This 88-nucleotide RNA sequence from Oxobacter pfennigii belongs to the Rfam family "c-di-GMP-I riboswitch aptamer".
The organism belongs to Oxobacter, within Bacteria.
GEMM was predicted in a large-scale screen for bacterial structured RNA regulatory elements.
The family's consensus secondary structure is taken from published work.
It scores 82 bits against the family's covariance model.
RNA sequence: CAAAUGAAGGGGCAAAUUCAUUGAAAAAUGAAGACGCAAAGCCACAAGUCUAAAGCAUGAAAAAUGCCAUGAUGGUUGGGUUGCCAAG
Numbered sequence: 001c002a003a004a005u006g007a008a009g010g011g012g013c014a015a016a017u018u019c020a021u022u023g024a025a026a027a028a029u030g031a032a033g034a035c036g037c038a039a040a041g042c043c044a045c046a047a048g049u050c051u052a053a054a055g056c057a058u059g060a061a062a063a064a065u066g067c068c069a070u071g072a073u074g075g076u077u078g079g080g081u082u083g084c085c086a087a088g
Stems, first nucleotide, its partner, number of pairs: 012037002017032006040082004045078003048073003055067004